[Rfam]
RNA sequence: UGAGUAAGUCAGAUGGUCGCGUGGGCUUUUAUGCCUACGAGGAAAGUCCGAGCUCCAUAGAGCAGGGUGCUGGGUAAUACCCAGUGGAGGCGACUCCAAGGAAAGUGCAACAGAGAGAUACCGCCCAUCAUUCUUUAGAGUGACGGGUAAGGGUGGAAAGGUGAGGUAAGAGCUCACCAGCAGCUAGGUGACUAGCUGGCUAUGUAAACCCCAUCUGGAGCAAGACCAAGUAGGGACUAAAAAAACGGCUGCUCGUCGUGUCCCGUGGUAGGUUGCUUGAGCCAACUGGCAACAGUUGGCCUAGAUAGAUGACCGUUUAAUACAGAACUCGGCUUAUAGAUUUGCUCACUUA
Numbered sequence: 001u002g003a004g005u006a007a008g009u010c011a012g013a014u015g016g017u018c019g020c021g022u023g024g025g026c027u028u029u030u031a032u033g034c035c036u037a038c039g040a041g042g043a044a045a046g047u048c049c050g051a052g053c054u055c056c057a058u059a060g061a062g063c064a065g066g067g068u069g070c071u072g073g074g075u076a077a078u079a080c081c082c083a084g085u086g087g088a089g090g091c092g093a094c095u096c097c098a099a100g101g102a103a104a105g106u107g108c109a110a111c112a113g114a115g116a117g118a119u120a121c122c123g124c125c126c127a128u129c130a131u132u133c134u135u136u137a138g139a140g141u142g143a144c145g146g147g148u149a150a151g152g153g154u155g156g157a158a159a160g161g162u163g164a165g166g167u168a169a170g171a172g173c174u175c176a177c178c179a180g181c182a183g184c185u186a187g188g189u190g191a192c193u194a195g196c197u198g199g200c201u202a203u204g205u206a207a208a209c210c211c212c213a214u215c216u217g218g219a220g221c222a223a224g225a226c227c228a229a230g231u232a233g234g235g236a237c238u239a240a241a242a243a244a245a246c247g248g249c250u251g252c253u254c255g256u257c258g259u260g261u262c263c264c265g266u267g268g269u270a271g272g273u274u275g276c277u278u279g280a281g282c283c284a285a286c287u288g289g290c291a292a293c294a295g296u297u298g299g300c301c302u303a304g305a306u307a308g309a310u311g312a313c314c315g316u317u318u319a320a321u322a323c324a325g326a327a328c329u330c331g332g333c334u335u336a337u338a339g340a341u342u343u344g345c346u347c348a349c350u351u352a
Stems, first nucleotide, its partner, number of pairs: 001348010011337001012317007020039007044335003048332005053220004060254004065216005070084005085099001086097004100211002105209002107205003121152002123148004128143006160178006180200001181198007224274004235264001245259005281300008